[Rfam]
RNA sequence: ACGUCCUGCUCGUGAUCGUCUUCUCACCCUUCACGGAGCAGGCGGUACAAGGGAAGGCUCCCGCAGGCCCGAUGCCUGCGGGAGCCUUCC
Numbered sequence: 001a002c003g004u005c006c007u008g009c010u011c012g013u014g015a016u017c018g019u020c021u022u023c024u025c026a027c028c029c030u031u032c033a034c035g036g037a038g039c040a041g042g043c044g045g046u047a048c049a050a051g052g053g054a055a056g057g058c059u060c061c062c063g064c065a066g067g068c069c070c071g072a073u074g075c076c077u078g079c080g081g082g083a084g085c086c087u088u089c090c
Stems, first nucleotide, its partner, number of pairs: 002044002005042007012034004018028001052090016